[Rfam]
Nucleotides: 091
Stems, first nucleotide, its partner, number of pairs: 006086008020033004035070003038066002042064003049057001
Number, partner (000 for none) and nucleotide at each position: 001000a002000a003000c004000a005000c006086c007085c008084a009083u010082g011081c012080g013079g014000g015000a016000g017000a018000g019000a020033c021032c022031c023030u024000g025000g026000a027000g028000a029000c030023a031022g032021g033020g034000c035070g036069c037068c038066g039065a040000a041000g042064a043063g044062g045000c046000a047000a048000a049057u050000c051000c052000u053000c054000c055000c056000c057049g058000g059000a060000a061000a062044c063043u064042u065039u066038c067000a068037g069036g070035c071000a072000a073000a074000g075000c076000g077000a078000a079013c080012c081011g082010c083009g084008u085007g086006g087000g088000c089000a090000g091000g